[Rfam]
RNA sequence: GCAACCUGAAGCUCGCGCACGAGGGCGUGGCCGUGUUCCGCUCGCUGCUGGGCAUCUCGUGGAUGUGGUUCUUCGGCGCCGUCUUCCUCGCCAACUUCCCGGCCUUUGCCAAGGAGGUGCUG
Dot-bracket structure: .........(((.((.((..(((.((......)).))).)).))..))).(((((.((.(.((.(.((...(..((((..(....)..)))).)...))...).)....).).)).))))).
Shown here is a 122-nucleotide RNA from Roseateles saccharophilus, a member of the family "Burkholderia RNA 11".
On this family, see Ramos et al., Genomics 2013: "Experimental identification of small non-coding regulatory RNAs in the opportunistic human pathogen Burkholderia cenocepacia J2315".
Rfam links the family to the GO term protein binding.
The base pairs follow the family's consensus structure, which was predicted with RNAfold.
The match comes from Rfam's covariance-model search (87 bits).
Rfam's curators write: Co-purified with Hfq, expression confirmed by Northern blot. Predicted target marZ. Overlaps coding sequence.